U4 spliceosomal RNA: a 127-nucleotide sequence from Mustela putorius.
RNA sequence: AGCUUUGGGCAGUGGCAGUAUCAUAGCCAAUGAGGUUUAUCCGAGGCGCGAUUAUUGCUAAUUGAGUAAUCUCUAUACCAAGAGUGGGGCUUGAACUCACAACCCCCAAAUCAAGAGUCACAUGUCU
Number, nucleotide and partner (000 for none) at each position: 001a000002g000003c000004u000005u000006u000007g000008g000009g000010c000011a000012g000013u000014g000015g000016c000017a000018g000019u000020a052021u051022c050023a000024u048025a000026g047027c046028c045029a000030a000031u000032g000033a000034g042035g041036u000037u000038u000039a000040u000041c035042c034043g000044a000045g028046g027047c026048g024049c000050g022051a021052u020053u000054a000055u000056u000057g000058c000059u000060a000061a000062u000063u000064g000065a000066g000067u000068a000069a000070u000071c000072u000073c000074u000075a000076u000077a000078c000079c000080a000081a127082g126083a125084g123085u122086g121087g000088g119089g118090c117091u116092u115093g000094a000095a000096c000097u000098c000099a000100c000101a000102a000103c000104c000105c000106c000107c000108a000109a000110a000111u000112c000113a000114a000115g092116a091117g090118u089119c088120a000121c086122a085123u084124g000125u083126c082127u081

Pairs were carried over by alignment from the consensus structure, which is taken from published work. It scores 64 bits against the family's covariance model.